[Rfam]
RNA sequence: UGUGCCGUGAGUUCGCACGAAAGGGGCCUCGCGCCCGUUGGGAAGGUCUGAGGGUGGAUGGCGGCGGCUGUACGCCGUGGAUUCGAGACGAAUCCUUCCGUAAUGGGAGACAGUCGACGAGAAACCCCCGCGAGGAGAACAGUGGGCGAAGAGUCCCCGACUCUGACAUCGCUCCUUGCGGUUGGGAUCGACUGUUGACCGCAUCCCUGAGCUCGAUGUGCGAAGUGGUCGUUGACCACAACAGAACUCAGACUACUCCACGACACG
Numbered sequence: 001u002g003u004g005c006c007g008u009g010a011g012u013u014c015g016c017a018c019g020a021a022a023g024g025g026g027c028c029u030c031g032c033g034c035c036c037g038u039u040g041g042g043a044a045g046g047u048c049u050g051a052g053g054g055u056g057g058a059u060g061g062c063g064g065c066g067g068c069u070g071u072a073c074g075c076c077g078u079g080g081a082u083u084c085g086a087g088a089c090g091a092a093u094c095c096u097u098c099c100g101u102a103a104u105g106g107g108a109g110a111c112a113g114u115c116g117a118c119g120a121g122a123a124a125c126c127c128c129c130g131c132g133a134g135g136a137g138a139a140c141a142g143u144g145g146g147c148g149a150a151g152a153g154u155c156c157c158c159g160a161c162u163c164u165g166a167c168a169u170c171g172c173u174c175c176u177u178g179c180g181g182u183u184g185g186g187a188u189c190g191a192c193u194g195u196u197g198a199c200c201g202c203a204u205c206c207c208u209g210a211g212c213u214c215g216a217u218g219u220g221c222g223a224a225g226u227g228g229u230c231g232u233u234g235a236c237c238a239c240a241a242c243a244g245a246a247c248u249c250a251g252a253c254u255a256c257u258c259c260a261c262g263a264c265a266c267g
Stems, first nucleotide, its partner, number of pairs: 001267004007261003012224007022039002025036002048251005053200003080094005095109005110195007128181003225239005